Shown here is a 41-nucleotide RNA from Microcaecilia unicolor, a member of the family "MAT2A 3'UTR stem loop D". A reference for the family is Parker et al. (2011), "New families of human regulatory RNA structures identified by comparative analysis of vertebrate genomes", Genome Res.

[Rfam]
RNA sequence: UCUGAGGGAUGGUGUGAGUACAGAGAAGCCAGAGCCUCAGA
Numbered sequence: 001u002c003u004g005a006g007g008g009a010u011g012g013u014g015u016g017a018g019u020a021c022a023g024a025g026a027a028g029c030c031a032g033a034g035c036c037u038c039a040g041a
Base pairs, nucleotide, nucleotide: 001041002040003039004038005037006036007035010031011030012029013028

The source organism's lineage runs through Eukaryota, Deuterostomia, Dipnotetrapodomorpha, Amphibia and Microcaecilia.